Rfam assigns this 120-nucleotide RNA sequence from Thermohalobacter berrensis to the family "FMN riboswitch aptamer (RFN element)".
RNA sequence: ACUAAUCUUCAGGGCAGGGUGAAAUUCCCGACCGGCGGUUAAAGCCCGCGAGCUGUAUAUACAGCUGAUCUGGUGAAAUUCCAGAGCCGACAGUUAAAGUCUGGAAGGGAGAAGGUUAGA
Number, nucleotide and partner (000 for none) at each position: 001a000002c000003u118004a117005a116006u115007c114008u113009u112010c111011a000012g000013g000014g000015c000016a000017g029018g028019g027020u000021g000022a000023a000024a000025u000026u000027c019028c018029c017030g000031a100032c099033c089034g088035g049036c048037g047038g046039u000040u000041a000042a000043a000044g087045c086046c038047c037048g036049c035050g000051a000052g065053c064054u063055g000056u000057a000058u000059a000060u000061a000062c000063a054064g053065c052066u000067g000068a000069u085070c084071u083072g082073g081074u000075g000076a000077a000078a000079u000080u000081c073082c072083a071084g070085a069086g045087c044088c034089g033090a000091c103092a102093g101094u000095u000096a000097a000098a000099g032100u031101c093102u092103g091104g000105a000106a000107g000108g000109g000110a000111g010112a009113a008114g007115g006116u005117u004118a003119g000120a000
Annotation:
Pairs were carried over by alignment from the consensus structure, which is taken from published work. Gene Ontology term of the family: FMN binding. The source organism's lineage runs through Bacteria, Bacillati, Bacillota, Thermohalobacteraceae and Thermohalobacter.